[Rfam]
RNA sequence: ACAGCAUCGAUGAUGGAGAAAAACCUUGUAAUCAUCCUUGCACUUUGAAUUUUCAUAGUGAUGAAAACUAAUGGGGAAAUAUGAGUCUGAGAUGCUU
Numbered sequence: 001a002c003a004g005c006a007u008c009g010a011u012g013a014u015g016g017a018g019a020a021a022a023a024c025c026u027u028g029u030a031a032u033c034a035u036c037c038u039u040g041c042a043c044u045u046u047g048a049a050u051u052u053u054c055a056u057a058g059u060g061a062u063g064a065a066a067a068c069u070a071a072u073g074g075g076g077a078a079a080u081a082u083g084a085g086u087c088u089g090a091g092a093u094g095c096u097u
Base pairs, nucleotide, nucleotide: 003096004095005094006093007092008091
Shown here is a 97-nucleotide RNA from Papaver somniferum, a member of the family "Small nucleolar RNA snoR26". Lineage of the source: Eukaryota > Streptophyta > Embryophyta > Ranunculales > Papaver. The family's RNA type in Rfam is C/D-box small nucleolar RNA. The family's consensus secondary structure was predicted with WAR.